[Rfam]
RNA sequence: UAUGCGGGCCGGGCCCCUCUGGCGUCGGCGGAAGAAAUUCCGCCACGUGAUGUCGGACCGCAUCG
Dot-bracket structure: .....((.((((.........((((.(((((((....)))))))))))....)))).))......
This 65-nucleotide sequence from Sphingopyxis lindanitolerans belongs to the Rfam family "terC RNA". A search with the family's covariance model found it, with a score of 55 bits. Lineage of the source: Bacteria > Pseudomonadati > Pseudomonadota > Sphingomonadales > Sphingopyxis. Rfam classes the family as a cis-regulatory element.